[Rfam]
mraW RNA: a 104-nucleotide RNA from Amnibacterium flavum.
RNA sequence: UUCUGAUCCUGACGUGCGACUCCCAGCCGUUCGCCGCCCUGACUCCACUUCCCCGGAGGCAGGUCGCGACACGGAUGGGGAUCGGGCGGCAGGAUCGGCUAGUC
Numbered sequence: 001u002u003c004u005g006a007u008c009c010u011g012a013c014g015u016g017c018g019a020c021u022c023c024c025a026g027c028c029g030u031u032c033g034c035c036g037c038c039c040u041g042a043c044u045c046c047a048c049u050u051c052c053c054c055g056g057a058g059g060c061a062g063g064u065c066g067c068g069a070c071a072c073g074g075a076u077g078g079g080g081a082u083c084g085g086g087c088g089g090c091a092g093g094a095u096c097g098g099c100u101a102g103u104c
Stems, first nucleotide, its partner, number of pairs: 010091002013088003018083002021080005027074004031069004036065001038063004043058003